[Rfam]
RNA sequence: GGCACUCCGUCUCGUGAGAUCCCUCGUCGCUCCCGCCCCGACGCAACUUCCCCGGUGGCGGGUCGGGAGCGAGGAGGGAUCCCGCCGGACGGCCCCGCAGAA
Numbered sequence: 001g002g003c004a005c006u007c008c009g010u011c012u013c014g015u016g017a018g019a020u021c022c023c024u025c026g027u028c029g030c031u032c033c034c035g036c037c038c039c040g041a042c043g044c045a046a047c048u049u050c051c052c053c054g055g056u057g058g059c060g061g062g063u064c065g066g067g068a069g070c071g072a073g074g075a076g077g078g079a080u081c082c083c084g085c086c087g088g089a090c091g092g093c094c095c096c097g098c099a100g101a102a
Stems, first nucleotide, its partner, number of pairs: 010089003014085003018081002021078005027072009037062004042057003
Dot-bracket structure: .........(((.(((.((.(((((.(((((((((.((((.(((..........))).)))).))))))))).))))).)).))).))).............